[Rfam]
RNA sequence: UGCACUUAUGUUUGUUUUUGUUUAACUUGUGGACAAAGACUUACAGAUGGAUGUGAAAAAUAAAUCCUCUUUUGCGAACUGGAACUCAUUGUUCAGUAUGAGUUUUGAUACAUGUAAGAAGGAAUAUU
Numbered sequence: 001u002g003c004a005c006u007u008a009u010g011u012u013u014g015u016u017u018u019u020g021u022u023u024a025a026c027u028u029g030u031g032g033a034c035a036a037a038g039a040c041u042u043a044c045a046g047a048u049g050g051a052u053g054u055g056a057a058a059a060a061u062a063a064a065u066c067c068u069c070u071u072u073u074g075c076g077a078a079c080u081g082g083a084a085c086u087c088a089u090u091g092u093u094c095a096g097u098a099u100g101a102g103u104u105u106u107g108a109u110a111c112a113u114g115u116a117a118g119a120a121g122g123a124a125u126a127u128u
Stems, first nucleotide, its partner, number of pairs: 001055004006050004011045001014040008026031001064125002067122002070119005080107010

Small nucleolar RNA SNORA40: a 128-nucleotide sequence from Macaca fascicularis. The base pairs follow the family's consensus structure, which was predicted with RNAalifold. About the family: The snoRNA ACA 40 belongs to the H/ACA family of snoRNAs and guides the pseudouridylation of 28S rRNA subunit at position U4565. Taxonomically the source falls in Macaca (Eukaryota, Opisthokonta, Euteleostomi, Simiiformes).